Rfam assigns this 85-nucleotide sequence from Flavobacterium succinicans to the family "Flavo-1 RNA".

[Rfam]
RNA sequence: UUUUUGCGUUAGGGAUUGUAGUGGAAAUCCUUUUUUGAGGCUCUUUUUGCCUCAAAAAAGAUUGUAGCGAAAUGCCCGACCCUUG
Numbered sequence: 001u002u003u004u005u006g007c008g009u010u011a012g013g014g015a016u017u018g019u020a021g022u023g024g025a026a027a028u029c030c031u032u033u034u035u036u037g038a039g040g041c042u043c044u045u046u047u048u049g050c051c052u053c054a055a056a057a058a059a060g061a062u063u064g065u066a067g068c069g070a071a072a073u074g075c076c077c078g079a080c081c082c083u084u085g
Stems, first nucleotide, its partner, number of pairs: 012077003017072001021068002026063004032058010
The source organism's lineage runs through Bacteria, Pseudomonadati, Flavobacteriia, Flavobacteriales and Flavobacterium.